[Rfam]
RNA sequence: AGCUUUGCAAAGUGUCAGUACUGUCACCAGUGAGGUUUCUCCAAGGCAUGAUUAUUGAUUUUGGAAAACUUUUCCCAAUACCCCUGCCAUGAUGACUUGAAAUAUAGUCGGCAUUGGCAAUUUUUGACAGUCUCUGUAGAGA
Numbered sequence: 001a002g003c004u005u006u007g008c009a010a011a012g013u014g015u016c017a018g019u020a021c022u023g024u025c026a027c028c029a030g031u032g033a034g035g036u037u038u039c040u041c042c043a044a045g046g047c048a049u050g051a052u053u054a055u056u057g058a059u060u061u062u063g064g065a066a067a068a069c070u071u072u073u074c075c076c077a078a079u080a081c082c083c084c085u086g087c088c089a090u091g092a093u094g095a096c097u098u099g100a101a102a103u104a105u106a107g108u109c110g111g112c113a114u115u116g117g118c119a120a121u122u123u124u125u126g127a128c129a130g131u132c133u134c135u136g137u138a139g140a141g142a
Stems, first nucleotide, its partner, number of pairs: 020052001022050003027046002034042002086118003089114003093110005131142004
A member of the RNA family "U4 spliceosomal RNA" from Camelus dromedarius, 142 nucleotides long. The family's consensus secondary structure is taken from published work. Lineage of the source: Eukaryota > Metazoa > Eumetazoa > Bilateria > Camelus. The match comes from Rfam's covariance-model search (82 bits). Rfam describes the family as follows. U4 small nuclear RNA (U4 snRNA) is a component of the major U2-dependent spliceosome.